[Rfam]
RNA: Group II catalytic intron D1-D4-4
Nucleotides: 142
Base pairs, nucleotide, nucleotide: 020044021043022042023041024040052091053090054089055088056087057082058081059080060079061078062077066073067072100116101115102114103113104112105111119135120134121133
Number, partner (000 for none) and nucleotide at each position: 001000u002000c003000a004000c005000a006000g007000g008000u009000g010000c011000a012000a013000g014000u015000c016000c017000u018000g019000u020044c021043u022042g023041a024040g025000a026000a027000a028000u029000u030000g031000u032000c033000g034000g035000g036000a037000c038000a039000u040024c041023u042022c043021a044020g045000u046000a047000g048000c049000u050000a051000c052091c053090g054089a055088g056087g057082c058081a059080g060079u061078c062077g063000c064000a065000a066073g067072g068000g069000u070000a071000a072067c073066c074000g075000a076000c077062c078061g079060a080059c081058u082057g083000a084000a085000g086000c087056c088055c089054u090053c091052g092000g093000g094000a095000c096000a097000g098000a099000g100116g101115c102114c103113c104112a105111c106000c107000g108000u109000g110000g111105g112104u113103g114102g115101g116100u117000c118000a119135g120134c121133g122000a123000g124000c125000c126000g127000a128000c129000g130000g131000g132000c133121c134120g135119c136000a137000a138000c139000a140000c141000g142000u